RNA sequence: CAUAUAUGCUAUGAUGGUAUAAUAUUAAACCUCUGACGGGACGUAUUGUGCUUGAUAUUCAUAUG
Numbered sequence: 001c002a003u004a005u006a007u008g009c010u011a012u013g014a015u016g017g018u019a020u021a022a023u024a025u026u027a028a029a030c031c032u033c034u035g036a037c038g039g040g041a042c043g044u045a046u047u048g049u050g051c052u053u054g055a056u057a058u059u060c061a062u063a064u065g
Base pairs, nucleotide, nucleotide: 001065002064003063004062005061016052017051018050019049020048021047022046023045024044025043031040032039033038
The family of this 65-nucleotide RNA from Mytilus galloprovincialis is "Selenocysteine insertion sequence 1".
About the family: The incorporation of selenocysteine into a protein sequence is directed by an in-frame UGA codon (usually a stop codon) within the coding region of the mRNA. Selenoprotein mRNAs contain a conserved secondary structure in the 3' UTR that is required for the distinction of UGA stop from UGA selenocysteine. The selenocysteine insertion sequence (SECIS) is around 60 nt in length and adopts a hairpin structure which is sufficiently well-defined and conserved to act as a computational screen for selenoprotein genes.
On this family, see Walczak et al., RNA 1996: "A novel RNA structural motif in the selenocysteine insertion element of eukaryotic selenoprotein mRNAs".